[Rfam]
RNA: Small nucleolar RNA SNORA65
RNA sequence: CAGGUCACUGCACCUGACCAGUUCUCUGUUGGCUAAUGCAGUUCAGUGUUGAGAUGAUAAUAAAUCCAACUUUUAGGAAAUAGGGUUAUUCUUCCUGUGGAUGAUUCUGUGCCAAAAGCAUGGGCACAGCC
Numbered sequence: 001c002a003g004g005u006c007a008c009u010g011c012a013c014c015u016g017a018c019c020a021g022u023u024c025u026c027u028g029u030u031g032g033c034u035a036a037u038g039c040a041g042u043u044c045a046g047u048g049u050u051g052a053g054a055u056g057a058u059a060a061u062a063a064a065u066c067c068a069a070c071u072u073u074u075a076g077g078a079a080a081u082a083g084g085g086u087u088a089u090u091c092u093u094c095c096u097g098u099g100g101a102u103g104a105u106u107c108u109g110u111g112c113c114a115a116a117a118g119c120a121u122g123g124g125c126a127c128a129g130c131c
Stems, first nucleotide, its partner, number of pairs: 006048005017037001020034002022031001065124004070118003076113002081109006089101003